[Rfam]
RNA sequence: CCGCAUAAAUACGUCUCAUUUCGUAUAUCCUGGACGAUAGGGUCUAGGGUUUCUACCGGAAACCGUAAAUUUCUAGCUACGAAAAAAAUAUGCCCCUCG
Numbered sequence: 001c002c003g004c005a006u007a008a009a010u011a012c013g014u015c016u017c018a019u020u021u022c023g024u025a026u027a028u029c030c031u032g033g034a035c036g037a038u039a040g041g042g043u044c045u046a047g048g049g050u051u052u053c054u055a056c057c058g059g060a061a062a063c064c065g066u067a068a069a070u071u072u073c074u075a076g077c078u079a080c081g082a083a084a085a086a087a088a089u090a091u092g093c094c095c096c097u098c099g
Stems, first nucleotide, its partner, number of pairs: 019084007029048007058074005